Small nucleolar RNA SNORA28: a 126-nucleotide RNA sequence from Jaculus jaculus. By type it is an H/ACA-box small nucleolar RNA. The family has 26 seed sequences and 922 matches in Rfam 15.1. ACA28 is a member of the H/ACA class of snoRNA that guide the sites of modification of uridines to pseudouridines.
RNA sequence: AAGCAACGCUCUGUGGCAGAUGAUCAGAUCUGUCUGACACAAUCUAAGCUUGAUGAAACAAGAAAGUCUAACCUAUUCCGGUGUUCUUUGCUCCACCAGACAAGCUGUUAUACAGACUUAAACAAU
Numbered sequence: 001a002a003g004c005a006a007c008g009c010u011c012u013g014u015g016g017c018a019g020a021u022g023a024u025c026a027g028a029u030c031u032g033u034c035u036g037a038c039a040c041a042a043u044c045u046a047a048g049c050u051u052g053a054u055g056a057a058a059c060a061a062g063a064a065a066g067u068c069u070a071a072c073c074u075a076u077u078c079c080g081g082u083g084u085u086c087u088u089u090g091c092u093c094c095a096c097c098a099g100a101c102a103a104g105c106u107g108u109u110a111u112a113c114a115g116a117c118u119u120a121a122a123c124a125a126u
Base pairs, nucleotide, nucleotide: 009048010047012041013040014039015038017036018035019034020033021032022031064119065118066117067116068115069114074112075111076110079107080106081105082104087100088099089098090097